[Rfam]
RNA sequence: GAUAAACGAAUAAAUAACCCUCGUAUAAUGUUGGGAAUAUGGCCCAGAAGUUUCUACCCGGUAACCGUAAAUUACUGGACUAUGAGGGAGAGUUAAUAUGAC
Numbered sequence: 001g002a003u004a005a006a007c008g009a010a011u012a013a014a015u016a017a018c019c020c021u022c023g024u025a026u027a028a029u030g031u032u033g034g035g036a037a038u039a040u041g042g043c044c045c046a047g048a049a050g051u052u053u054c055u056a057c058c059c060g061g062u063a064a065c066c067g068u069a070a071a072u073u074a075c076u077g078g079a080c081u082a083u084g085a086g087g088g089a090g091a092g093u094u095a096a097u098a099u100g101a102c
Stems, first nucleotide, its partner, number of pairs: 018088008029049001031047005058078007
RNA: Purine riboswitch aptamer
Organism: Bacillus mesophilum